[Rfam]
RNA sequence: GCCGAGUUCAGUAGCGAGAGCCUGUAACCCAAGCGGGGGCACUAAGGUGGCUGCGGAUGUUUGGUGUGGAUUCUGAUCCUGGGCCCCAUGUUGUUGUAAUCUUGCUGGCUUGCCCGUUCCAAGUUGCGUAGUGGGCCGGAGGGGCUUUUGGCGAAGGCCUUUGCUUUGCUUCUCCGGCCCUAAAGUGGCAAGCACAGCGUGAGGCUGGCUUCACAGAGCAGCGAUCACUGCCCGCUUCCAUCGGUGGAAGGAUAACAGGCUGCUGCACCUUGGGCCCGCUUCUGGCCCAGAGUCCCUCUACAACAGACCACCAUCUUU
Numbered sequence: 001g002c003c004g005a006g007u008u009c010a011g012u013a014g015c016g017a018g019a020g021c022c023u024g025u026a027a028c029c030c031a032a033g034c035g036g037g038g039g040c041a042c043u044a045a046g047g048u049g050g051c052u053g054c055g056g057a058u059g060u061u062u063g064g065u066g067u068g069g070a071u072u073c074u075g076a077u078c079c080u081g082g083g084c085c086c087c088a089u090g091u092u093g094u095u096g097u098a099a100u101c102u103u104g105c106u107g108g109c110u111u112g113c114c115c116g117u118u119c120c121a122a123g124u125u126g127c128g129u130a131g132u133g134g135g136c137c138g139g140a141g142g143g144g145c146u147u148u149u150g151g152c153g154a155a156g157g158c159c160u161u162u163g164c165u166u167u168g169c170u171u172c173u174c175c176g177g178c179c180c181u182a183a184a185g186u187g188g189c190a191a192g193c194a195c196a197g198c199g200u201g202a203g204g205c206u207g208g209c210u211u212c213a214c215a216g217a218g219c220a221g222c223g224a225u226c227a228c229u230g231c232c233c234g235c236u237u238c239c240a241u242c243g244g245u246g247g248a249a250g251g252a253u254a255a256c257a258g259g260c261u262g263c264u265g266c267a268c269c270u271u272g273g274g275c276c277c278g279c280u281u282c283u284g285g286c287c288c289a290g291a292g293u294c295c296c297u298c299u300a301c302a303a304c305a306g307a308c309c310a311c312c313a314u315c316u317u318u
Stems, first nucleotide, its partner, number of pairs: 001040003004023001006021004028037003044317007053308001058305002060302001062300001064298001066296001068294002071292005078285002081277006088270001090269001095267002106262007114251002117249005123242001125240002128238001130236003134179012150159003180185001187232004196225001198223003205216003